RNA sequence: UUUCCCAAUGAUGCUGGUUUCUUACCAUGCUAAUUCUGAUAACAUGAUUAAUAUUUUUUUAUCAUACUGAGGGAACC
Numbered sequence: 001u002u003u004c005c006c007a008a009u010g011a012u013g014c015u016g017g018u019u020u021c022u023u024a025c026c027a028u029g030c031u032a033a034u035u036c037u038g039a040u041a042a043c044a045u046g047a048u049u050a051a052u053a054u055u056u057u058u059u060u061a062u063c064a065u066a067c068u069g070a071g072g073g074a075a076c077c
Stems, first nucleotide, its partner, number of pairs: 002075004

Rfam assigns this 77-nucleotide RNA sequence from Lupinus albus to the family "Small nucleolar RNA snoR53Y". The family has 7 seed sequences and 513 matches in Rfam 15.1. Pairs were carried over by alignment from the consensus structure, which was predicted with WAR. Its Rfam clan is "snoR53 clan". It is annotated as a C/D-box small nucleolar RNA. A search with the family's covariance model found it, with a score of 59 bits. Rfam links the family to the GO terms nucleolus and RNA processing.